[Rfam]
RNA sequence: UUGGUGUGAGUUUGUAUGGAGUUGGAACAACGCUCCUAGCGGCAAACGAAGGGCAGCUGUUCCAAUUCCAUACAAAUUUGAGUUA
Numbered sequence: 001u002u003g004g005u006g007u008g009a010g011u012u013u014g015u016a017u018g019g020a021g022u023u024g025g026a027a028c029a030a031c032g033c034u035c036c037u038a039g040c041g042g043c044a045a046a047c048g049a050a051g052g053g054c055a056g057c058u059g060u061u062c063c064a065a066u067u068c069c070a071u072a073c074a075a076a077u078u079u080g081a082g083u084u085a
Stems, first nucleotide, its partner, number of pairs: 008079009018069001020067010034053003039047001
Annotation: A member of the RNA family "mir-2807 microRNA precursor family" from Bombyx mori, 85 nucleotides long. The source organism's lineage runs through Eukaryota, Metazoa, Bombycoidea, Bombycidae and Bombyx. Pairs were carried over by alignment from the consensus structure, which was predicted with RNAalifold. The match comes from Rfam's covariance-model search (60 bits). Rfam links the family to the GO terms miRNA-mediated post-transcriptional gene silencing and RISC complex.